This 125-nucleotide RNA sequence from Crocuta crocuta belongs to the Rfam family "Small nucleolar RNA SNORA72". A reference for the family is Ganot et al. (1997), "The family of box ACA small nucleolar RNAs is defined by an evolutionarily conserved secondary structure and ubiquitous sequence elements essential for RNA accumulation", Genes Dev. The organism belongs to Crocuta, within Eukaryota. A search with the family's covariance model found it, with a score of 62 bits. From the family's description: U72 is a member of the H/ACA class of snoRNAs. The snoRNA gene is located in intron 4 of the ribosomal L30 protein gene in human, mouse and chicken. It is annotated as an H/ACA-box small nucleolar RNA. Gene Ontology terms of the family: RNA processing and nucleolus.
RNA sequence: CAGCAGCUGGGAACUUGUUAGAAAGGCAGUUUCCAGGCUAACCAUUGGCUAUAUUGAGACCAUGUGUGUGUCACCAGACUCCUGUCCCUUCCCUAGUUCUGAUUUUGCAAAUGCUGGUGAUAAAC
Dot-bracket structure: ......(((((((((.((.......)))))))))))......................((((.((.........((((..(..(........)..).))))...........)))))).......